RNA sequence: GUGUAAUGAUGAUAAACAUGCGUGUCAGCUGACUCUGUAGUUCACUGCUGUGUUGUUGCUCUGGUCAGCGUUUUGCUGGUCGGAGUCCUCGACGCGGCAGGGUUACAGGGACGUGAUCAUACUUUAUUAUUUCUGAAUAC
Numbered sequence: 001g002u003g004u005a006a007u008g009a010u011g012a013u014a015a016a017c018a019u020g021c022g023u024g025u026c027a028g029c030u031g032a033c034u035c036u037g038u039a040g041u042u043c044a045c046u047g048c049u050g051u052g053u054u055g056u057u058g059c060u061c062u063g064g065u066c067a068g069c070g071u072u073u074u075g076c077u078g079g080u081c082g083g084a085g086u087c088c089u090c091g092a093c094g095c096g097g098c099a100g101g102g103u104u105a106c107a108g109g110g111a112c113g114u115g116a117u118c119a120u121a122c123u124u125u126a127u128u129a130u131u132u133c134u135g136a137a138u139a140c
Stems, first nucleotide, its partner, number of pairs: 001140004043102001045100007
Shown here is a 140-nucleotide RNA from Liparis tanakae, a member of the family "Small nucleolar RNA SNORD10". On this family, see Huttenhofer et al., EMBO J 2001: "RNomics: an experimental approach that identifies 201 candidates for novel, small, non-messenger RNAs in mouse". Lineage of the source: Eukaryota > Bilateria > Actinopteri > Ctenosquamata > Liparis.